Description: This 164-nucleotide RNA sequence from Medicago truncatula belongs to the Rfam family "MIR2606 microRNA precursor family". A search with the family's covariance model found it, with a score of 140 bits. The family has 4 seed sequences and 227 matches in Rfam 15.1. Pairs were carried over by alignment from the consensus structure, which was predicted with RNAalifold. Taxonomically the source falls in Medicago (Eukaryota, Magnoliopsida, Mesangiospermae, Hologalegina).

RNA sequence: AAAACUUAGGUACAAUUCUUUAGAUACUUUUCGUAUGGUUCUCAACUAAAAAUACACCUUUGUUGGAUAGAACAAUCUUUGAGAAAAUUAUGGAUUUGAUGAAAUUAUGGUAAAUUUAUUUAAGAACCAUACGAAAAACAUCUAAGAAAUUGUACCUAAGUCUU
Numbered sequence: 001a002a003a004a005c006u007u008a009g010g011u012a013c014a015a016u017u018c019u020u021u022a023g024a025u026a027c028u029u030u031u032c033g034u035a036u037g038g039u040u041c042u043c044a045a046c047u048a049a050a051a052a053u054a055c056a057c058c059u060u061u062g063u064u065g066g067a068u069a070g071a072a073c074a075a076u077c078u079u080u081g082a083g084a085a086a087a088u089u090a091u092g093g094a095u096u097u098g099a100u101g102a103a104a105u106u107a108u109g110g111u112a113a114a115u116u117u118a119u120u121u122a123a124g125a126a127c128c129a130u131a132c133g134a135a136a137a138a139c140a141u142c143u144a145a146g147a148a149a150u151u152g153u154a155c156c157u158a159a160g161u162c163u164u
Stems, first nucleotide, its partner, number of pairs: 002163001004161005010155004015150003019146007028137015045120001047118004